Shown here is a 54-nucleotide RNA from Coregonus sp. 'balchen', a member of the family "UnaL2 LINE 3' element". The family's RNA type in Rfam is cis-regulatory element. It scores 63 bits against the family's covariance model. The organism belongs to Coregonus, within Eukaryota. Gene Ontology term of the family: transposition, RNA-mediated. The literature on the family includes a 2004 paper in RNA by Baba et al., "Solution structure of an RNA stem-loop derived from the 3' conserved region of eel LINE UnaL2". The eel long interspersed element (LINE) UnaL2 and its partner short interspersed element (SINE) share a conserved 3' tail containing a stem-loop that is critical for their retrotransposition.
Nucleotides: 054
Stems, first nucleotide, its partner, number of pairs: 013043001014041003020036006
Number, partner (000 for none) and nucleotide at each position: 001000c002000u003000a004000c005000c006000c007000c008000c009000c010000u011000c012000c013043u014041g015040u016039a017000a018000g019000u020036c021035g022034c023033u024032c025031u026000g027000g028000a029000u030000a031025a032024g033023a034022g035021c036020g037000u038000c039016u040015g041014c042000u043013a044000a045000a046000u047000g048000a049000c050000u051000a052000a053000a054000a